[Rfam]
RNA: t44 RNA
RNA sequence: GAAACAAACCGGCAAAUUCACACACGUGUCGGCACGUUGUCCCAGGGUGCCCGUUUCGCCAUGGCGGAACCGGGUUGGGGCAAUCGGACGCGUGGAGGACUAAC
Numbered sequence: 001g002a003a004a005c006a007a008a009c010c011g012g013c014a015a016a017u018u019c020a021c022a023c024a025c026g027u028g029u030c031g032g033c034a035c036g037u038u039g040u041c042c043c044a045g046g047g048u049g050c051c052c053g054u055u056u057c058g059c060c061a062u063g064g065c066g067g068a069a070c071c072g073g074g075u076u077g078g079g080g081c082a083a084u085c086g087g088a089c090g091c092g093u094g095g096a097g098g099a100c101u102a103a104c
Base pairs, nucleotide, nucleotide: 023094024093025092026091027090028089029088030087036084037083038082039081040080041079042078043077044076049075050074051073052072053071